[Rfam]
RNA sequence: CAAGGAACUUGUUUAACAGCUGAGUGACUUUUAAGCAGUCAAAUUCCUUUAGGUUUAAAUCAUGCAGCUGUUGAACAAGCUCUUGC
Number, nucleotide and partner (000 for none) at each position: 001c000002a000003a084004g083005g082006a081007a000008c079009u078010u077011g076012u075013u074014u073015a072016a071017c070018a069019g068020c067021u066022g065023a000024g063025u062026g061027a060028c000029u058030u057031u000032u000033a054034a000035g000036c052037a000038g000039u000040c000041a000042a000043a000044u000045u000046c000047c000048u000049u000050u000051a000052g036053g000054u033055u000056u000057a030058a029059a000060u027061c026062a025063u024064g000065c022066a021067g020068c019069u018070g017071u016072u015073g014074a013075a012076c011077a010078a009079g008080c000081u006082c005083u004084u003085g000086c000